This 76-nucleotide RNA from Bombyx mori belongs to the Rfam family "mir-2820 microRNA precursor family". Rfam links the family to the GO terms RISC complex and miRNA-mediated post-transcriptional gene silencing. The organism belongs to Bombyx, within Eukaryota.
RNA sequence: AAGCCUAUUCAUGAUCCUUUUGCAUCGUGCAUGGCCUUGGCGGGACGUACAGCAAGAUGGAUCGUGAAUAAGGCGC
Numbered sequence: 001a002a003g004c005c006u007a008u009u010c011a012u013g014a015u016c017c018u019u020u021u022g023c024a025u026c027g028u029g030c031a032u033g034g035c036c037u038u039g040g041c042g043g044g045a046c047g048u049a050c051a052g053c054a055a056g057a058u059g060g061a062u063c064g065u066g067a068a069u070a071a072g073g074c075g076c
Stems, first nucleotide, its partner, number of pairs: 003074004007069007015061003018057006027050004